Small nucleolar RNA U54: an 81-nucleotide RNA sequence from Dendrobium catenatum. Rfam's curators write: U54 is a C/D box small nucleolar RNA, which acts as a methylation guide for 18S ribosomal RNA in plants. The family's RNA type in Rfam is C/D-box small nucleolar RNA. It scores 67 bits against the family's covariance model. The source organism's lineage runs through Eukaryota, Euphyllophyta, Liliopsida, Petrosaviidae and Dendrobium.

[Rfam]
RNA sequence: AGCUCGAUGAUUGCAUCCUUUUUUUGAAGGAAUAUACGCUAUUCUGAGUUUUAAAUGCUGAUUUUAAAGAUUAUGAGAGCU
Numbered sequence: 001a002g003c004u005c006g007a008u009g010a011u012u013g014c015a016u017c018c019u020u021u022u023u024u025u026g027a028a029g030g031a032a033u034a035u036a037c038g039c040u041a042u043u044c045u046g047a048g049u050u051u052u053a054a055a056u057g058c059u060g061a062u063u064u065u066a067a068a069g070a071u072u073a074u075g076a077g078a079g080c081u
Base pairs, nucleotide, nucleotide: 001081002080003079004078005077